[Rfam]
RNA sequence: AAACGAAAGAGGCAAACCUUUUGAAAGAAGGGGACGCAAAGCUAUGGGCCUAAGGAGUAUUUGCUCUAUGGUCGCCAAGCCGCCGAA
Number, nucleotide and partner (000 for none) at each position: 001a000002a000003a000004c000005g000006a000007a000008a000009g000010a000011g000012g037013c036014a000015a000016a000017c032018c031019u030020u029021u028022u027023g000024a000025a000026a000027g022028a021029a020030g019031g018032g017033g000034a000035c000036g013037c012038a000039a000040a000041g080042c079043u078044a000045u077046g076047g075048g072049c071050c070051u000052a000053a000054g000055g066056a065057g064058u063059a000060u000061u000062u000063g058064c057065u056066c055067u000068a000069u000070g050071g049072u048073c000074g000075c047076c046077a045078a043079g042080c041081c000082g000083c000084c000085g000086a000087a000